[Rfam]
RNA sequence: GGCACUUGUUUAUGUUUUUGUUUUACUUGUGGACCAAGACUGACAGACAGGUGCAAAAAAUAAAUUCUCUUUUGCAACUCAGAAUUCAUUGUUUCAGUAUGAGUUUUGAUACAUAUAAGAAGGAAUAUC
Numbered sequence: 001g002g003c004a005c006u007u008g009u010u011u012a013u014g015u016u017u018u019u020g021u022u023u024u025a026c027u028u029g030u031g032g033a034c035c036a037a038g039a040c041u042g043a044c045a046g047a048c049a050g051g052u053g054c055a056a057a058a059a060a061u062a063a064a065u066u067c068u069c070u071u072u073u074g075c076a077a078c079u080c081a082g083a084a085u086u087c088a089u090u091g092u093u094u095c096a097g098u099a100u101g102a103g104u105u106u107u108g109a110u111a112c113a114u115a116u117a118a119g120a121a122g123g124a125a126u127a128u129c
Base pairs, nucleotide, nucleotide: 002054003053004052005051006050007049008048009047011045014040015039016038017037018036020034021033026031064126065125066124067123068122070120071119072118073117074116080108081107082106083105084104085103086102087101088100089099

Shown here is a 129-nucleotide RNA sequence from Carlito syrichta, a member of the family "Small nucleolar RNA SNORA40".
The family's RNA type in Rfam is H/ACA-box small nucleolar RNA.
The family's consensus secondary structure was predicted with RNAalifold.
Gene Ontology terms of the family: RNA processing and nucleolus.
Rfam's curators write: The snoRNA ACA 40 belongs to the H/ACA family of snoRNAs and guides the pseudouridylation of 28S rRNA subunit at position U4565. NB This family has a high threshold value to exclude a large number of closely related sequences that do not appear to have conserved H and ACA boxes, and may be pseudogenes.
The source organism's lineage runs through Eukaryota, Eumetazoa, Teleostomi, Sarcopterygii and Carlito.